[Rfam]
RNA sequence: CGUGAAUCUAUUGUCUGCCAAGCCUGCCGCUUACCGGCUGCAGGGGAGGGCAGCGAAAAGAGGAAACC
Numbered sequence: 001c002g003u004g005a006a007u008c009u010a011u012u013g014u015c016u017g018c019c020a021a022g023c024c025u026g027c028c029g030c031u032u033a034c035c036g037g038c039u040g041c042a043g044g045g046g047a048g049g050g051c052a053g054c055g056a057a058a059a060g061a062g063g064a065a066a067c068c
Stems, first nucleotide, its partner, number of pairs: 011056003015053005023044005029038003

A member of the RNA family "ilvH RNA" from Allobrachymonas denitrificans, 68 nucleotides long. The family's RNA type in Rfam is cis-regulatory element. The source organism's lineage runs through Bacteria, Betaproteobacteria, Comamonadaceae, Allobrachymonas and Allobrachymonas denitrificans.